[Rfam]
RNA sequence: CGAUCGGAUGCAACGAAUCCGCCUGGCAGGAGCGGGGGACCCACUUCGGGUGGCGCAAGCCGCCCUAGGGGCGAAGUCCCGGCGCAGCACCUCGCGGUGUCGCACCGGACCGGGUAUCUCCAACCCGAGCCCGACAGCUCACCUCGUAGGCGACGGAGAGGUGCUUC
Numbered sequence: 001c002g003a004u005c006g007g008a009u010g011c012a013a014c015g016a017a018u019c020c021g022c023c024u025g026g027c028a029g030g031a032g033c034g035g036g037g038g039a040c041c042c043a044c045u046u047c048g049g050g051u052g053g054c055g056c057a058a059g060c061c062g063c064c065c066u067a068g069g070g071g072c073g074a075a076g077u078c079c080c081g082g083c084g085c086a087g088c089a090c091c092u093c094g095c096g097g098u099g100u101c102g103c104a105c106c107g108g109a110c111c112g113g114g115u116a117u118c119u120c121c122a123a124c125c126c127g128a129g130c131c132c133g134a135c136a137g138c139u140c141a142c143c144u145c146g147u148a149g150g151c152g153a154c155g156g157a158g159a160g161g162u163g164c165u166u167c
Stems, first nucleotide, its partner, number of pairs: 009152003014149001018031003032147006042068001069132003077109003112126004
The record is a 167-nucleotide sequence from Flexivirga endophytica, which matches "c-di-AMP riboswitch aptamer (ydaO/yuaA leader)" in Rfam. A search with the family's covariance model found it, with a score of 51 bits. Its family is annotated with regulation of gene expression and cyclic-di-AMP binding in the Gene Ontology. Pairs were carried over by alignment from the consensus structure. NCBI's taxonomy places the organism under Bacteria, Bacillati, Micrococcales, Dermacoccaceae, Flexivirga.